[Rfam]
RNA sequence: CCCGCACCUAUGAAGGCCUGUGCCGAAGACAGCCCGCUGUUGGUACAGACUGGAAGCUUCUCGCGUG
Number, nucleotide and partner (000 for none) at each position: 001c067002c000003c065004g064005c063006a000007c000008c000009u000010a000011u000012g000013a000014a000015g051016g050017c000018c048019u047020g046021u045022g044023c043024c042025g000026a000027a000028g000029a000030c039031a038032g037033c000034c000035c000036g000037c032038u031039g030040u000041u000042g024043g023044u022045a021046c020047a019048g018049a000050c016051u015052g000053g000054a000055a000056g000057c000058u000059u000060c000061u000062c000063g005064c004065g003066u000067g001
This 67-nucleotide sequence from Eudromia elegans belongs to the Rfam family "Selenocysteine insertion sequence 1". Gene Ontology term of the family: selenocysteine incorporation. The family's RNA type in Rfam is cis-regulatory element. For this family Rfam cites "A novel RNA structural motif in the selenocysteine insertion element of eukaryotic selenoprotein mRNAs" (Walczak et al., RNA, 1996). The family's consensus secondary structure is taken from published work.